The family of this 98-nucleotide sequence from Rhododendron simsii is "Small nucleolar RNA Z161/Z228".
RNA sequence: AUGCCAGAUGAUGAAUUUGGAUAAUUUCUCACAACGGUCGUCUGAGGCACCUCAGGGUGUUAGAUUGAUUGAGAAAGUUCCCAACUUUACUGAUGGUU
Numbered sequence: 001a002u003g004c005c006a007g008a009u010g011a012u013g014a015a016u017u018u019g020g021a022u023a024a025u026u027u028c029u030c031a032c033a034a035c036g037g038u039c040g041u042c043u044g045a046g047g048c049a050c051c052u053c054a055g056g057g058u059g060u061u062a063g064a065u066u067g068a069u070u071g072a073g074a075a076a077g078u079u080c081c082c083a084a085c086u087u088u089a090c091u092g093a094u095g096g097u098u
Stems, first nucleotide, its partner, number of pairs: 001098001004095001048059003
For this family Rfam cites "The high diversity of snoRNAs in plants: identification and comparative study of 120 snoRNA genes from Oryza sativa" (Chen et al., Nucleic Acids Res, 2003).
Pairs were carried over by alignment from the consensus structure, which was predicted with PFOLD.
Its Rfam clan is "SNORD35 clan".
It scores 48 bits against the family's covariance model.
NCBI's taxonomy places the organism under Eukaryota, Euphyllophyta, Magnoliopsida, Pentapetalae, Rhododendron.